RNA sequence: GCUUGGGUAAGUUACUUAACCUCUCUGUGCCUUGGUUCCUCAAGUGUAAGACGGGGAUAAAAUACUAUUUCCCCAGUAGUGUAUGCAGCCUGUUGCCUGUAUGGGUUGCCCUAAGGGGCCUUGGAGACAGCC
Numbered sequence: 001g002c003u004u005g006g007g008u009a010a011g012u013u014a015c016u017u018a019a020c021c022u023c024u025c026u027g028u029g030c031c032u033u034g035g036u037u038c039c040u041c042a043a044g045u046g047u048a049a050g051a052c053g054g055g056g057a058u059a060a061a062a063u064a065c066u067a068u069u070u071c072c073c074c075a076g077u078a079g080u081g082u083a084u085g086c087a088g089c090c091u092g093u094u095g096c097c098u099g100u101a102u103g104g105g106u107u108g109c110c111c112u113a114a115g116g117g118g119c120c121u122u123g124g125a126g127a128c129a130g131c132c
Stems, first nucleotide, its partner, number of pairs: 001045004007039001009037002076119002086108006